Rfam assigns this 46-nucleotide sequence to the family "DUF3800-XI RNA".
RNA sequence: UGGGCUGGUCGCAAGACCCAGGUCCAUCAACGGCGGGAAGUUCCCC
Numbered sequence: 001u002g003g004g005c006u007g008g009u010c011g012c013a014a015g016a017c018c019c020a021g022g023u024c025c026a027u028c029a030a031c032g033g034c035g036g037g038a039a040g041u042u043c044c045c046c
Stems, first nucleotide, its partner, number of pairs: 001026006007018004
Annotation:
It is annotated as a small RNA. The family's consensus secondary structure is taken from published work. About the family: Actinobacteria, Firmicutes, Proteobacteria, Spirochaetes (1 example). Rfam's curators put it in the seed alignment.